[Rfam]
RNA sequence: UAAUUUGUUAAAAGUAAAUUCUCAUUUAAUUGUGAUAGACUUUUACUUUUUAAAAUCAUUUGUUAUCGCAAGUUUGACUAUUUCAAUAACCCGGCUCAAUUUCAUGUUAUAAGCUGGGCAAGUCGGGGU
Numbered sequence: 001u002a003a004u005u006u007g008u009u010a011a012a013a014g015u016a017a018a019u020u021c022u023c024a025u026u027u028a029a030u031u032g033u034g035a036u037a038g039a040c041u042u043u044u045a046c047u048u049u050u051u052a053a054a055a056u057c058a059u060u061u062g063u064u065a066u067c068g069c070a071a072g073u074u075u076g077a078c079u080a081u082u083u084c085a086a087u088a089a090c091c092c093g094g095c096u097c098a099a100u101u102u103c104a105u106g107u108u109a110u111a112a113g114c115u116g117g118g119c120a121a122g123u124c125g126g127g128g129u
Base pairs, nucleotide, nucleotide: 004127005126006125007124008122009121014114015113018110019109023106024105025104028101029100030099031098
Shown here is a 129-nucleotide RNA from Salix purpurea, a member of the family "MIR480 microRNA precursor family". NCBI's taxonomy places the organism under Eukaryota, Viridiplantae, Gunneridae, Pentapetalae, Salix. A search with the family's covariance model found it, with a score of 59 bits. For this family Rfam cites "Novel and mechanical stress-responsive MicroRNAs in Populus trichocarpa that are absent from Arabidopsis" (Lu et al., Plant Cell, 2005).